RNA sequence: AUACUCACAUUGGCGGUGGAAAAUACAUUGUUCAUGAAGGAAGUUUUCCCGGGGUGAGGCUCAUCCAUUGCACUUUGGUGUGCUGGCCCCUGCAGUUUCCUCAGAUGUGGGGAAACUUUGUGGCAGUGGGGGAUUGUGUUUGUGUUUUCCCCUG
Numbered sequence: 001a002u003a004c005u006c007a008c009a010u011u012g013g014c015g016g017u018g019g020a021a022a023a024u025a026c027a028u029u030g031u032u033c034a035u036g037a038a039g040g041a042a043g044u045u046u047u048c049c050c051g052g053g054g055u056g057a058g059g060c061u062c063a064u065c066c067a068u069u070g071c072a073c074u075u076u077g078g079u080g081u082g083c084u085g086g087c088c089c090c091u092g093c094a095g096u097u098u099c100c101u102c103a104g105a106u107g108u109g110g111g112g113a114a115a116c117u118u119u120g121u122g123g124c125a126g127u128g129g130g131g132g133a134u135u136g137u138g139u140u141u142g143u144g145u146u147u148u149c150c151c152c153u154g
Stems, first nucleotide, its partner, number of pairs: 016121001018049005025044002028041002051091004056087001058084003062080002065078002094118002096115001097113002100110002128153006136145003
RNA: U1 spliceosomal RNA
Organism: Podarcis muralis